[Rfam]
RNA sequence: CAGGGCCUCCCUCCAGCGACGGCCGAACUGGGCUAGCCAUGCUCACAGUAGGACUAGCAAACGGAGGGACUAGCCGUAGUGGCGAGCUCCCUGGGUGGUCUAAGUCCUGAGUACAGGACAGUCGUCAGUAGUUCGACGUGAGCGGAAGCCCACCUCGAGAUGCUAUGUGGACGAGGGCAUGCCCAAGACACACCUUAACCCUAGCGGGGGUCGCUAGGGUGAAAUCACACCAGGUGAUGGGGGUACGACCUGAUAGGGUGCUGCAGAGGCCCACUAUUAGGCUAGUAUAAAAAUCUCUGCUGUACAUGGCAC
Numbered sequence: 001c002a003g004g005g006c007c008u009c010c011c012u013c014c015a016g017c018g019a020c021g022g023c024c025g026a027a028c029u030g031g032g033c034u035a036g037c038c039a040u041g042c043u044c045a046c047a048g049u050a051g052g053a054c055u056a057g058c059a060a061a062c063g064g065a066g067g068g069a070c071u072a073g074c075c076g077u078a079g080u081g082g083c084g085a086g087c088u089c090c091c092u093g094g095g096u097g098g099u100c101u102a103a104g105u106c107c108u109g110a111g112u113a114c115a116g117g118a119c120a121g122u123c124g125u126c127a128g129u130a131g132u133u134c135g136a137c138g139u140g141a142g143c144g145g146a147a148g149c150c151c152a153c154c155u156c157g158a159g160a161u162g163c164u165a166u167g168u169g170g171a172c173g174a175g176g177g178c179a180u181g182c183c184c185a186a187g188a189c190a191c192a193c194c195u196u197a198a199c200c201c202u203a204g205c206g207g208g209g210g211u212c213g214c215u216a217g218g219g220u221g222a223a224a225u226c227a228c229a230c231c232a233g234g235u236g237a238u239g240g241g242g243g244u245a246c247g248a249c250c251u252g253a254u255a256g257g258g259u260g261c262u263g264c265a266g267a268g269g270c271c272c273a274c275u276a277u278u279a280g281g282c283u284a285g286u287a288u289a290a291a292a293a294u295c296u297c298u299g300c301u302g303u304a305c306a307u308g309g310c311a312c
Base pairs, nucleotide, nucleotide: 009068010067011066012065013064014063016058017057021055022054023052024051029045030044031043032042033041069286070285071284072283073282074281075280076277077276078275079274080273081272082271083247084246086244087243088242089241090240091239093195094194095193096192097191098189099188100187101186104119105118106117107116108115109114122174123173124172125171126170128166129165130164131163132162133158134157135156136155138153139152140151142149143148175184176183177182198220199219200218201217202216203215204214205213206212207211224238225237226236227235228234248259249258250257251256261302263300264299265298266297267296268295